[Rfam]
RNA: Molybdenum/Tungsten riboswitch aptamer (Moco RNA motif)
Organism: Mariniphaga sediminis
Nucleotides: 138
Base pairs, nucleotide, nucleotide: 003132011124012123013122014121015120016119019054020053021052022051023050024049025048026047028046029045030044035040059084060083061082062081063080064079066077067076068075069074085115086114
Number, partner (000 for none) and nucleotide at each position: 001000g002000u003132u004000g005000a006000u007000u008000g009000u010000g011124u012123u013122c014121u015120c016119c017000g018000a019054g020053u021052u022051u023050g024049u025048c026047a027000g028046u029045c030044c031000u032000a033000a034000a035040c036000u037000c038000a039000g040035g041000c042000a043000g044030g045029g046028a047026u048025g049024a050023u051022a052021a053020a054019c055000c056000g057000a058000c059084g060083g061082g062081a063080u064079a065000g066077g067076c068075u069074g070000g071000a072000a073000a074069c075068a076067g077066c078000g079064u080063a081062u082061c083060c084059u085115c086114c087000c088000g089000a090000g091000u092000u093000c094000g095000a096000a097000g098000u099000a100000u101000u102000u103000u104000u105000g106000a107000a108000u109000g110000a111000a112000u113000u114086g115085g116000a117000a118000a119016g120015g121014a122013g123012a124011a125000a126000a127000g128000c129000c130000a131000a132003a133000u134000g135000g136000a137000g138000u